[Rfam]
RNA sequence: GGUCGAGUGUGUGGCUAAUACAACACCAGCCUUGGCUGGGAAUAUGCCCGCCGUCUUCGAGCGGUUUUGAGCACUCGACCGCCUUACU
Dot-bracket structure: (((((((((...(((((........(((((....)))))...)).))).(((((......)))))......)))))))))........

The record is an 88-nucleotide RNA sequence from Ephemeroptericola cinctiostellae, which matches "sRNA-Xcc1" in Rfam.
The source organism's lineage runs through Bacteria, Pseudomonadati, Betaproteobacteria, Burkholderiaceae and Ephemeroptericola.
A search with the family's covariance model found it, with a score of 67 bits.
The literature on the family includes a 2011 paper in RNA Biol by Chen et al., "sRNA-Xcc1, an integron-encoded transposon- and plasmid-transferred trans-acting sRNA, is under the positive control of the key virulence regulators HrpG and HrpX of Xanthomonas campestris pathovar campestris".
Rfam 15.1 lists 421 matches to the family in 299 species.